Mammalian CPEB3 ribozyme: a 74-nucleotide RNA from Alligator sinensis. Rfam links the family to the GO term RNA nuclease activity. Pairs were carried over by alignment from the consensus structure, which is taken from published work. Taxonomically the source falls in Alligator (Eukaryota, Bilateria, Gnathostomata, Alligatoridae).
RNA sequence: UUUGCACUAGAAGGCUAUAGCAGAAGUGCUCAUGGCGCGGCCCUGUCAGAUUCCAGUGAAUCUAAUAAUCUGCU
Numbered sequence: 001u002u003u004g005c006a007c008u009a010g011a012a013g014g015c016u017a018u019a020g021c022a023g024a025a026g027u028g029c030u031c032a033u034g035g036c037g038c039g040g041c042c043c044u045g046u047c048a049g050a051u052u053c054c055a056g057u058g059a060a061u062c063u064a065a066u067a068a069u070c071u072g073c074u
Stems, first nucleotide, its partner, number of pairs: 013042004019074006026038003048063006